[Rfam]
A member of the RNA family "Molybdenum/Tungsten riboswitch aptamer (Moco RNA motif)" from Desulfuromonas sp. AOP6, 118 nucleotides long.
RNA sequence: AAUAAAUAAAAUCUCCGAACCGUAUCGCCUACAGGGGCAACCCCAGGGCGACCGGUCGUUGGGUCCGGCUGGAAACGGCCGUGCCUCCCUUUUGGAAAGGAGAGCAUCCGUAAACCCC
Dot-bracket structure: ..((.......(((((..((((..(((((....(((....)))...))))).))))....((((.((((((....)))))).))))((.....))...))))).......))......
The family has 160 seed sequences and 1,248 matches in Rfam 15.1.